Shown here is an 85-nucleotide RNA sequence from Allostigmatella aurantiaca, a member of the family "antisense RNA of dnaA mRNA". The literature on the family includes a 2013 paper in PLoS One by Dadzie et al., "Identification and characterization of a cis-encoded antisense RNA associated with the replication process of Salmonella enterica serovar Typhi". Its family is annotated with regulation of mRNA stability in the Gene Ontology. A search with the family's covariance model found it, with a score of 59 bits. The base pairs follow the family's consensus structure, which was predicted with RNAfold. NCBI's taxonomy places the organism under Bacteria, Myxococcia, Myxococcales, Cystobacterineae, Allostigmatella.
RNA sequence: CCACGCGCUGGGCGGGGUUGCGCUCCCAGAUGAGGUUGCCCACCGCGUGAAGCAGGUGCGUCUUGCCCAGGCCCGUGCCGCCAUA
Numbered sequence: 001c002c003a004c005g006c007g008c009u010g011g012g013c014g015g016g017g018u019u020g021c022g023c024u025c026c027c028a029g030a031u032g033a034g035g036u037u038g039c040c041c042a043c044c045g046c047g048u049g050a051a052g053c054a055g056g057u058g059c060g061u062c063u064u065g066c067c068c069a070g071g072c073c074c075g076u077g078c079c080g081c082c083a084u085a
Base pairs, nucleotide, nucleotide: 004047005046006045007044009042010041011040012039013038020036021035024033025032055082056081057080058079060078061077065076066075